Record summary
The record is a 61-nucleotide RNA sequence from Erwinia piriflorinigrans, which matches "L31-Gammaproteobacteria ribosomal protein leader" in Rfam. The family is grouped with related families in Rfam's "Ribosomal Protein L31 Leader clan". By type it is a cis-regulatory leader. The sequence is in the family's curated seed alignment.
RNA sequence: CGUGUGGUGCCGGUGCAGGAGAAUUCCUGGCGCGGGAGAGCGACACGGCCUUAACUGAGGU
Numbered sequence: 001c002g003u004g005u006g007g008u009g010c011c012g013g014u015g016c017a018g019g020a021g022a023a024u025u026c027c028u029g030g031c032g033c034g035g036g037a038g039a040g041c042g043a044c045a046c047g048g049c050c051u052u053a054a055c056u057g058a059g060g061u
Base pairs, nucleotide, nucleotide: 001047002046003045004044005043007041008040010036011035013033014032015031
Dot-bracket structure: (((((.((.((.(((...............))).))...)).)))))..............